[Rfam]
RNA sequence: UCCCUGCUUCACCUCCCUGAGCAGGCCUCUUCCAGAGGAAUUUCUCGGCCCGGCUAUAUGCCGGGCCUUUUUUUG
Numbered sequence: 001u002c003c004c005u006g007c008u009u010c011a012c013c014u015c016c017c018u019g020a021g022c023a024g025g026c027c028u029c030u031u032c033c034a035g036a037g038g039a040a041u042u043u044c045u046c047g048g049c050c051c052g053g054c055u056a057u058a059u060g061c062c063g064g065g066c067c068u069u070u071u072u073u074u075g
Base pairs, nucleotide, nucleotide: 003025004024005023006022007021008020027038028037030035047067048066049065050064051063052062053061054060
RNA: Burkholderia RNA 7 (anti-hemB)